[Rfam]
RNA sequence: UGGAAGAAUCUGUUAAGCUCAGGAGGGAUAGCGCCAUUCUUGGUUUGGUUUUAGACCAUGUAUUGCGCUAUCCAUCCUGAGUUUCAUGGCUUCUUCUU
Numbered sequence: 001u002g003g004a005a006g007a008a009u010c011u012g013u014u015a016a017g018c019u020c021a022g023g024a025g026g027g028a029u030a031g032c033g034c035c036a037u038u039c040u041u042g043g044u045u046u047g048g049u050u051u052u053a054g055a056c057c058a059u060g061u062a063u064u065g066c067g068c069u070a071u072c073c074a075u076c077c078u079g080a081g082u083u084u085c086a087u088g089g090c091u092u093c094u095u096c097u098u
Base pairs, nucleotide, nucleotide: 010089016083017082018081019080020079021078022077023076024075026073027072028071029070030069031068032067033066034065

Shown here is a 98-nucleotide RNA from Prunus armeniaca, a member of the family "MIR390 microRNA precursor family". For this family Rfam cites "ASRP: the Arabidopsis Small RNA Project Database" (Gustafson et al., Nucleic Acids Res, 2005). Rfam 15.1 lists 649 matches to the family in 206 species. It scores 98 bits against the family's covariance model.